The family of this 60-nucleotide sequence from Sphingomonas sp. FARSPH is "nhaA-I RNA". A search with the family's covariance model found it, with a score of 53 bits. Rfam describes the family as follows. Acidobacteria, Alphaproteobacteria, Betaproteobacteria and Gammaproteobacteria, Verrucomicrobia, cand. division NC10. The family's RNA type in Rfam is riboswitch.
RNA sequence: GGGUGUCUGCGGCGUCAUGGUGCUGCAGGCAGGUAUCUCACGCUGGUCGGGCCGCCAGCG
Number, nucleotide and partner (000 for none) at each position: 001g000002g000003g000004u000005g030006u029007c028008u027009g026010c025011g024012g023013c022014g021015u000016c000017a000018u000019g000020g000021u014022g013023c012024u011025g010026c009027a008028g007029g006030c005031a000032g000033g000034u000035a000036u000037c000038u000039c000040a000041c060042g059043c058044u057045g056046g055047u054048c000049g000050g000051g000052c000053c000054g047055c046056c045057a044058g043059c042060g041